[Rfam]
Record summary: This 171-nucleotide RNA from Lachnospiraceae bacterium KH1T2 belongs to the Rfam family "Group II catalytic intron D1-D4-3". The source organism's lineage runs through Bacteria, Bacillati, Clostridia, Lachnospirales and Lachnospiraceae. The match comes from Rfam's covariance-model search (120 bits). Pairs were carried over by alignment from the consensus structure. Rfam links the family to the GO term Group II intron splicing.
RNA sequence: UACAUCGUGAGGUGUAGGCGAGAAGAAAGGAUAGCGAAAUCGUAGCCUGACGAACAGAAACCUGAUAACAAGGCGUUUGCGGCGGAUAAGCUGGCUAAACAUAGUGAAGUCCUAAAGGCAACCGUAAUCCGUAGGCGUAAAUCAGGCAGGUAGACGAGGAAAGACUGACAG
Number, nucleotide and partner (000 for none) at each position: 001u016002a015003c014004a013005u012006c011007g000008u000009g000010a000011g006012g005013u004014g003015u002016a001017g000018g000019c000020g000021a000022g000023a000024a000025g000026a000027a000028a000029g000030g169031a000032u167033a000034g000035c163036g000037a000038a000039a000040u157041c156042g155043u154044a000045g151046c150047c149048u148049g147050a000051c000052g000053a000054a000055c000056a000057g000058a000059a000060a000061c146062c145063u144064g143065a142066u141067a000068a000069c000070a000071a000072g000073g138074c137075g136076u000077u134078u133079g132080c131081g130082g129083c000084g112085g111086a110087u109088a000089a000090g105091c104092u103093g102094g000095c000096u000097a000098a000099a000100c000101a000102u093103a092104g091105u090106g000107a000108a000109g087110u086111c085112c084113u000114a000115a000116a000117g000118g000119c000120a000121a000122c000123c000124g000125u000126a000127a000128u000129c082130c081131g080132u079133a078134g077135g000136c075137g074138u073139a000140a000141a066142u065143c064144a063145g062146g061147c049148a048149g047150g046151u045152a000153g000154a043155c042156g041157a040158g000159g000160a000161a000162a000163g035164a000165c000166u000167g032168a000169c030170a000171g000